[Rfam]
The record is an 85-nucleotide RNA from Raphanus sativus, which matches "Small nucleolar RNA Z122" in Rfam. Lineage of the source: Eukaryota > Viridiplantae > Mesangiospermae > eudicotyledons > Raphanus. A reference for the family is Chen et al. (2003), "The high diversity of snoRNAs in plants: identification and comparative study of 120 snoRNA genes from Oryza sativa", Nucleic Acids Res. Its family is annotated with nucleolus and RNA processing in the Gene Ontology.
RNA sequence: UCUGGGAAAUGAUGAUUAAAUAUCGAUAUGUCAUAGGCACAUGCAAUGCUGAACUACAUAUUUGCCACGUCAGUCUGAUCCCAUU
Numbered sequence: 001u002c003u004g005g006g007a008a009a010u011g012a013u014g015a016u017u018a019a020a021u022a023u024c025g026a027u028a029u030g031u032c033a034u035a036g037g038c039a040c041a042u043g044c045a046a047u048g049c050u051g052a053a054c055u056a057c058a059u060a061u062u063u064g065c066c067a068c069g070u071c072a073g074u075c076u077g078a079u080c081c082c083a084u085u
Stems, first nucleotide, its partner, number of pairs: 003083005